[Rfam]
RNA sequence: AAGUUCUUGGGAUGCGUACCAGAUGCGCGUUUACAAUGGAUUUGAAAAAUGACGUGUAAAUGCACUAUCUGGUACGACAUUCCAGGAUCU
Dot-bracket structure: .......((((...(((((((((.(.(((((((((...................))))))))).)..)))))))))....))))......
The family of this 90-nucleotide sequence from Oryctes borbonicus is "mir-277 microRNA precursor family". The family's consensus secondary structure was predicted with RNAalifold. Its family is annotated with miRNA-mediated post-transcriptional gene silencing and RISC complex in the Gene Ontology. On this family, see Liu et al., BMC Genomics 2010: "MicroRNAs of Bombyx mori identified by Solexa sequencing".